[Rfam]
RNA sequence: AUACCAGGCCGGGCCCCUCUGGCAGUUCCGAUGAACUGCGAUGUCGGACUGGAUAU
Numbered sequence: 001a002u003a004c005c006a007g008g009c010c011g012g013g014c015c016c017c018u019c020u021g022g023c024a025g026u027u028c029c030g031a032u033g034a035a036c037u038g039c040g041a042u043g044u045c046g047g048a049c050u051g052g053a054u055a056u
Stems, first nucleotide, its partner, number of pairs: 006050002009047004022039007

Shown here is a 56-nucleotide RNA from Microvirga makkahensis, a member of the family "terC RNA". Pairs were carried over by alignment from the consensus structure, which is taken from published work. By type it is a cis-regulatory element. The family has 129 seed sequences and 1,112 matches in Rfam 15.1. Taxonomically the source falls in Microvirga (Bacteria, Pseudomonadota, Alphaproteobacteria, Hyphomicrobiales).